[Rfam]
RNA sequence: UGCUUAAAGGUUGUGUAAGUCGCUCUGGAAAAGAGCGUCUGCUAAAUGCUUGUAA
Numbered sequence: 001u002g003c004u005u006a007a008a009g010g011u012u013g014u015g016u017a018a019g020u021c022g023c024u025c026u027g028g029a030a031a032a033g034a035g036c037g038u039c040u041g042c043u044a045a046a047u048g049c050u051u052g053u054a055a
Stems, first nucleotide, its partner, number of pairs: 014044001015042003021037006
Rfam assigns this 55-nucleotide RNA from Synaphobranchus kaupii to the family "UnaL2 LINE 3' element". The eel long interspersed element (LINE) UnaL2 and its partner short interspersed element (SINE) share a conserved 3' tail containing a stem-loop that is critical for their retrotransposition. It scores 56 bits against the family's covariance model. Pairs were carried over by alignment from the consensus structure, which is taken from published work. For this family Rfam cites "Solution structure of an RNA stem-loop derived from the 3' conserved region of eel LINE UnaL2" (Baba et al., RNA, 2004).